[Rfam]
RNA: Purine riboswitch aptamer
RNA sequence: UAACUGUAAUUGAAUACAACUUAUAUAAGUUCGUAAUUGGGUCGGACGUUUCUACCAACUACCGUAAUAGUUGACUAUAAGUUCACAUCAUCGCCUU
Numbered sequence: 001u002a003a004c005u006g007u008a009a010u011u012g013a014a015u016a017c018a019a020c021u022u023a024u025a026u027a028a029g030u031u032c033g034u035a036a037u038u039g040g041g042u043c044g045g046a047c048g049u050u051u052c053u054a055c056c057a058a059c060u061a062c063c064g065u066a067a068u069a070g071u072u073g074a075c076u077a078u079a080a081g082u083u084c085a086c087a088u089c090a091u092c093g094c095c096u097u
Stems, first nucleotide, its partner, number of pairs: 018083008029047005056073006